The record is an 87-nucleotide RNA sequence from Paenibacillus sp. YN15, which matches "c-di-GMP-I riboswitch aptamer" in Rfam. NCBI's taxonomy places the organism under Bacteria, Bacillati, Bacillota, Bacilli, Paenibacillus. A search with the family's covariance model found it, with a score of 76 bits.

RNA sequence: ACCGAUAAACGGCAAACCUGUUGAAAAGCAGGGACGCAAAGCUAUAGGGCCUUCCCUUCAUCUGAAGGAUGGCAGCCAGUUUCCGAA
Numbered sequence: 001a002c003c004g005a006u007a008a009a010c011g012g013c014a015a016a017c018c019u020g021u022u023g024a025a026a027a028g029c030a031g032g033g034a035c036g037c038a039a040a041g042c043u044a045u046a047g048g049g050c051c052u053u054c055c056c057u058u059c060a061u062c063u064g065a066a067g068g069a070u071g072g073c074a075g076c077c078a079g080u081u082u083c084c085g086a087a
Stems, first nucleotide, its partner, number of pairs: 012037002017032006040081004047077002049073003056067004